[Rfam]
RNA sequence: UCCCUCGUCGUCCAGUCGGCAGGACACAGCACUCUGGAUGCUGGAAGCGUGGUUCGAGUCCAUGCGAGGGAG
Numbered sequence: 001u002c003c004c005u006c007g008u009c010g011u012c013c014a015g016u017c018g019g020c021a022g023g024a025c026a027c028a029g030c031a032c033u034c035u036g037g038a039u040g041c042u043g044g045a046a047g048c049g050u051g052g053u054u055c056g057a058g059u060c061c062a063u064g065c066g067a068g069g070g071a072g
Stems, first nucleotide, its partner, number of pairs: 001071007010025004027043005048064005
tRNA: a 72-nucleotide RNA from Dactylosporangium vinaceum. The base pairs follow the family's consensus structure, which is taken from published work. By type it is a transfer RNA. The match comes from Rfam's covariance-model search (51 bits).